Rfam assigns this 421-nucleotide part of an RNA from Lasiodiplodia theobromae to the family "Eukaryotic large subunit ribosomal RNA".
The family has 88 seed sequences and 107,465 matches in Rfam 15.1.
RNA sequence: UGACCUCGGAUCAGGUAGGGAUACCCGCUGAACUUAAGCAUAUCAAUAAGCGGAGGAAAAGAAACCAACAGGGAUUGCCUUAGUAACGGCGAGUGAAGCGGCAACAGCUCAAAUUUGAAAGCUGGCCCUUUUAGGGUCCGCAUUGUAAUUUGUAGAGGAUGAUUCGGCGAGGGCUCCUGCCUAAGUCCCCUGGAACGGGGCGUCAUAGAGGGUGAGAAUCCCGUAUGCGGUAGGUUGCCUUAGCCAUGUGAAUCUCCUUCGACGAGUCGAGUUGUUUGGGAAUGCAGCUCUAAAUGGGAGGUAAAUUUCUUCUAAAGCUAAAUACCGGCCAGAGACCGAUAGCGCACAAGUAGAGUGAUCGAAAGAUGAAAAGCACUUUGGAAAGAGAGUUAAAAAGUACGUGAAAUUGUUGAAAGGGAAG
Numbered sequence: 001u002g003a004c005c006u007c008g009g010a011u012c013a014g015g016u017a018g019g020g021a022u023a024c025c026c027g028c029u030g031a032a033c034u035u036a037a038g039c040a041u042a043u044c045a046a047u048a049a050g051c052g053g054a055g056g057a058a059a060a061g062a063a064a065c066c067a068a069c070a071g072g073g074a075u076u077g078c079c080u081u082a083g084u085a086a087c088g089g090c091g092a093g094u095g096a097a098g099c100g101g102c103a104a105c106a107g108c109u110c111a112a113a114u115u116u117g118a119a120a121g122c123u124g125g126c127c128c129u130u131u132u133a134g135g136g137u138c139c140g141c142a143u144u145g146u147a148a149u150u151u152g153u154a155g156a157g158g159a160u161g162a163u164u165c166g167g168c169g170a171g172g173g174c175u176c177c178u179g180c181c182u183a184a185g186u187c188c189c190c191u192g193g194a195a196c197g198g199g200g201c202g203u204c205a206u207a208g209a210g211g212g213u214g215a216g217a218a219u220c221c222c223g224u225a226u227g228c229g230g231u232a233g234g235u236u237g238c239c240u241u242a243g244c245c246a247u248g249u250g251a252a253u254c255u256c257c258u259u260c261g262a263c264g265a266g267u268c269g270a271g272u273u274g275u276u277u278g279g280g281a282a283u284g285c286a287g288c289u290c291u292a293a294a295u296g297g298g299a300g301g302u303a304a305a306u307u308u309c310u311u312c313u314a315a316a317g318c319u320a321a322a323u324a325c326c327g328g329c330c331a332g333a334g335a336c337c338g339a340u341a342g343c344g345c346a347c348a349a350g351u352a353g354a355g356u357g358a359u360c361g362a363a364a365g366a367u368g369a370a371a372a373g374c375a376c377u378u379u380g381g382a383a384a385g386a387g388a389g390u391u392a393a394a395a396a397g398u399a400c401g402u403g404a405a406a407u408u409g410u411u412g413a414a415a416g417g418g419a420a421g
Stems, first nucleotide, its partner, number of pairs: 024055001025053005035042002065072002076103004086094002106319004112150004118144002121141002124138004155260002157257003162253004167244002170241004176234006185201001187200004204208001211221002269290007296313005353360002376387004